This 149-nucleotide RNA from Giardia duodenalis belongs to the Rfam family "Small nucleolar RNA GlsR18". By type it is an H/ACA-box small nucleolar RNA.
RNA sequence: ACGCAGCCUAAUCACCGCCCCUAUAGUCCUUUUCUAAACGCGUGGCCGGUGCAGCUGCCCGCUGGCGCUUGCGAGCGUGCACAGGCCUACAUCCAGGGUCAUAGGUGGGGAGCGGAUCCCGUCCAUCCUCAAUCCGGGCCCGCACAGUC
Numbered sequence: 001a002c003g004c005a006g007c008c009u010a011a012u013c014a015c016c017g018c019c020c021c022u023a024u025a026g027u028c029c030u031u032u033u034c035u036a037a038a039c040g041c042g043u044g045g046c047c048g049g050u051g052c053a054g055c056u057g058c059c060c061g062c063u064g065g066c067g068c069u070u071g072c073g074a075g076c077g078u079g080c081a082c083a084g085g086c087c088u089a090c091a092u093c094c095a096g097g098g099u100c101a102u103a104g105g106u107g108g109g110g111a112g113c114g115g116a117u118c119c120c121g122u123c124c125a126u127c128c129u130c131a132a133u134c135c136g137g138g139c140c141c142g143c144a145c146a147g148u149c
Base pairs, nucleotide, nucleotide: 003143004142044087045086046085047084049082050081051080052079053078056077057076058075060073061072062071104135105134106131107130108129109128110127111126114124115123116122117121